[Rfam]
RNA sequence: CGAUAGGACAAUCCCUAGGAGGUCUCCUAAGGGCGGUCGGCUAACCCCGAGGAAAGGGGGUGAAGCCUUGACAAUUUUCGAAACCUUAAUGGCGAUGUUUACUUUUGCUACUCUGAUAAUUGCCAUUUUGUCAUUCCAAAAUAAAAAAUAGACCUCCCUUGUCCGAAAAAUGAGGGAGAGGUCUAUUCAUCCAAUGUAGGCCGAUCCCCUAUUGGGGGACCAUGUCUAUCGUGGGCCGUAAAUGCUGCAACAUUUACG
Numbered sequence: 001c002g003a004u005a006g007g008a009c010a011a012u013c014c015c016u017a018g019g020a021g022g023u024c025u026c027c028u029a030a031g032g033g034c035g036g037u038c039g040g041c042u043a044a045c046c047c048c049g050a051g052g053a054a055a056g057g058g059g060g061u062g063a064a065g066c067c068u069u070g071a072c073a074a075u076u077u078u079c080g081a082a083a084c085c086u087u088a089a090u091g092g093c094g095a096u097g098u099u100u101a102c103u104u105u106u107g108c109u110a111c112u113c114u115g116a117u118a119a120u121u122g123c124c125a126u127u128u129u130g131u132c133a134u135u136c137c138a139a140a141a142u143a144a145a146a147a148a149u150a151g152a153c154c155u156c157c158c159u160u161g162u163c164c165g166a167a168a169a170a171u172g173a174g175g176g177a178g179a180g181g182u183c184u185a186u187u188c189a190u191c192c193a194a195u196g197u198a199g200g201c202c203g204a205u206c207c208c209c210u211a212u213u214g215g216g217g218g219a220c221c222a223u224g225u226c227u228a229u230c231g232u233g234g235g236c237c238g239u240a241a242a243u244g245c246u247g248c249a250a251c252a253u254u255u256a257c258g
Stems, first nucleotide, its partner, number of pairs: 001231005007226003021202004026161001029160005035153001037151001042063001044061005070132005083098002107124001109122002170190003205219004237258008
BsrG: a 258-nucleotide sequence from Bacillus sp. V59.32b. Rfam classes the family as a small RNA. The family's consensus secondary structure was predicted with WAR. The source organism's lineage runs through Bacteria, Bacillati, Bacilli, Bacillaceae and Bacillus. Rfam's curators write: bsrE, bsrG and bsrH pair through intermolecular interactions with antisense sRNAs. They form type I toxin/antitoxin system that includes an mRNA encoding for a short, toxic peptide (bsrE, bsrG and bsrH) and an antitoxin that is comprised of an antisense RNA. bsrG encodes a 39-amino-acid toxin, and the 180 nucleotide antisense sRNA called SR4 acts as the antitoxin (they overlap by 123 nucleotides). SR4 interaction with the 3'UTR of bsrG RNA promotes bsrG degradation and inhibits its translation.